[Rfam]
RNA sequence: GUGGGUGGAAGCUCAUCAUAGAGGUCACAUGCAGGGUGCUGUCACUCAACCAAUCACCUUGGGGAAGGUCUGAGACAAGAGCCAAUCAUUGCCCUAGCAGGGUAUCACCUGAUCUGGGUGGAGUGAGUGCACAGAGAAUAUGAGCCAUUGUGGAGUUGUCUUUACAGGAGAAACCAGCCAGUGCAGCUCCCAGCACUACUGGUGGAUGUGACCUCGCUGGUUGGAAACACUCAUGGCUGGCAUAUGAGUGCAAUGUGUGAGUUGGAGUACACCUCCAGAACCCAAUUCAGACUAUCUCUGCCCAC
Dot-bracket structure: ((((..(((..(((((....((((.........(((((....))))).........)))).........[[[[[.....((((......(((((.....)))))((((((.....)))))).(((((((...............(((......................................................................))).......)))))))))))..................)))))((((((.....)))))).......]]]]]......)))..))))
RNA: Nuclear RNase P